Rfam assigns this 182-nucleotide sequence from Cryptobacterium curtum to the family "FMN riboswitch aptamer (RFN element)". A search with the family's covariance model found it, with a score of 98 bits. The organism belongs to Cryptobacterium curtum, within Bacteria.
[Rfam]
RNA sequence: CCGCUGUUUCAGGGCGGGGUGAAAUUCCCCACUGGCGGUCAUUCGGCGCAGACAACAGCCUGCGAUGCGCACUCUGCGCAUGAACCGAUAAGCCCGCGAGCCCUGCCGCGUUGGUUCGCGGUGGGGUUGAUUCGGUGAAAAUCCGAAGCCAACGGUUAAAGUCCGGAUGAAAGAGGCAGGUG
Numbered sequence: 001c002c003g004c005u006g007u008u009u010c011a012g013g014g015c016g017g018g019g020u021g022a023a024a025u026u027c028c029c030c031a032c033u034g035g036c037g038g039u040c041a042u043u044c045g046g047c048g049c050a051g052a053c054a055a056c057a058g059c060c061u062g063c064g065a066u067g068c069g070c071a072c073u074c075u076g077c078g079c080a081u082g083a084a085c086c087g088a089u090a091a092g093c094c095c096g097c098g099a100g101c102c103c104u105g106c107c108g109c110g111u112u113g114g115u116u117c118g119c120g121g122u123g124g125g126g127u128u129g130a131u132u133c134g135g136u137g138a139a140a141a142u143c144c145g146a147a148g149c150c151a152a153c154g155g156u157u158a159a160a161g162u163c164c165g166g167a168u169g170a171a172a173g174a175g176g177c178a179g180g181u182g
Stems, first nucleotide, its partner, number of pairs: 004179007017029003031162002033151002035097004100127006131147005153165003